[Rfam]
RNA sequence: GUGCCGUGAUGUUAAAUGUCAACACAUCAUUCUGAAGAAGAAUUGUGUGGAGACCUUCUGUAACUGAGCACC
Numbered sequence: 001g002u003g004c005c006g007u008g009a010u011g012u013u014a015a016a017u018g019u020c021a022a023c024a025c026a027u028c029a030u031u032c033u034g035a036a037g038a039a040g041a042a043u044u045g046u047g048u049g050g051a052g053a054c055c056u057u058c059u060g061u062a063a064c065u066g067a068g069c070a071c072c
Stems, first nucleotide, its partner, number of pairs: 001071004
Overview:
Shown here is a 72-nucleotide sequence from Apaloderma vittatum, a member of the family "Small nucleolar RNA SNORD63". Gene Ontology terms of the family: RNA processing and nucleolus. The family's consensus secondary structure was predicted with PFOLD. Rfam describes the family as follows. snoRNA U63 is found in both humans and mice.